RNA sequence: GUAGAUAAAUUAGAGGCCAUAGUAGAAGUGCUUAUGGUGUGGCCUGUCAGAUUCCAGUGAAUCUAUGCAUUCUGCU
Numbered sequence: 001g002u003a004g005a006u007a008a009a010u011u012a013g014a015g016g017c018c019a020u021a022g023u024a025g026a027a028g029u030g031c032u033u034a035u036g037g038u039g040u041g042g043c044c045u046g047u048c049a050g051a052u053u054c055c056a057g058u059g060a061a062u063c064u065a066u067g068c069a070u071u072c073u074g075c076u
Base pairs, nucleotide, nucleotide: 015044016043017042018041021076022075023074024073025072026071027070028040029039030038049064050063051062052061053060054059

Mammalian CPEB3 ribozyme: a 76-nucleotide RNA from Alligator mississippiensis. On this family, see Teixeira et al., Nature 2004: "Autocatalytic RNA cleavage in the human beta-globin pre-mRNA promotes transcription termination". Taxonomically the source falls in Alligator (Eukaryota, Deuterostomia, Euteleostomi, Sauria). The mammalian CPEB3 ribozyme is a self cleaving RNA located in the second intron of the CPEB3 gene which belongs to a family of genes regulating messenger RNA polyadenylation. The base pairs follow the family's consensus structure, which is taken from published work.